[Rfam]
RNA sequence: GUGAACUGAUAAUUCGAGAGGUGGAAUGAUAGGGUAACGCCUUGAAACGCCUCCCUUGAUACUCCGGCAUGCGUCAUCACUCUGUGAUGAGGUGUGAAGCCCGGUAAAGUCGGCAGAAAGGUGCCGUAACAGAUAACGCUGACGAAACCUGUCCAGAGGUGGACAGCGCACCCCAUAUGCCGGGGGUCUAUAAA
Number, nucleotide and partner (000 for none) at each position: 001g000002u000003g000004a000005a000006c000007u000008g000009a000010u000011a000012a000013u000014u000015c000016g000017a000018g053019a052020g051021g050022u049023g048024g000025a000026a000027u000028g000029a000030u000031a043032g042033g041034g040035u000036a000037a000038c000039g000040c034041c033042u032043u031044g000045a000046a000047a000048c023049g022050c021051c020052u019053c018054c186055c185056u184057u183058g000059a000060u000061a000062c000063u000064c104065c103066g102067g101068c096069a095070u094071g093072c092073g000074u090075c089076a088077u087078c086079a085080c084081u000082c000083u000084g080085u079086g078087a077088u076089g075090a074091g000092g072093u071094g070095u069096g068097a000098a000099g000100c000101c067102c066103g065104g064105u000106a000107a000108a000109g000110u000111c182112g181113g180114c179115a178116g000117a000118a000119a000120g172121g171122u170123g169124c168125c144126g143127u142128a000129a000130c000131a140132g139133a000134u000135a000136a000137c000138g000139c132140u131141g000142a127143c126144g125145a000146a000147a000148c000149c166150u165151g164152u163153c162154c161155a160156g000157a000158g000159g000160u155161g154162g153163a152164c151165a150166g149167c000168g124169c123170a122171c121172c120173c000174c000175a000176u000177a000178u115179g114180c113181c112182g111183g057184g056185g055186g054187u000188c000189u000190a000191u000192a000193a000194a000

Shown here is a 194-nucleotide RNA from Roseburia sp. 1XD42-69, a member of the family "Group II catalytic intron D1-D4-5". Group II introns are found in rRNA, tRNA and mRNA of organelles in fungi, plants and protists, and also in mRNA in bacteria. Gene Ontology term of the family: Group II intron splicing. Lineage of the source: Bacteria > Clostridia > Lachnospirales > Lachnospiraceae > Roseburia. On this family, see Bonen and Vogel, Trends Genet 2001: "The ins and outs of group II introns".